[Rfam]
RNA sequence: GUAUCUCCGCUCGGGGGGGAGACCGAUUUCACGCCUGCGGGAAAUCAGAGGGAGGAC
Numbered sequence: 001g002u003a004u005c006u007c008c009g010c011u012c013g014g015g016g017g018g019g020a021g022a023c024c025g026a027u028u029u030c031a032c033g034c035c036u037g038c039g040g041g042a043a044a045u046c047a048g049a050g051g052g053a054g055g056a057c
Stems, first nucleotide, its partner, number of pairs: 004022005010016001025046006032039002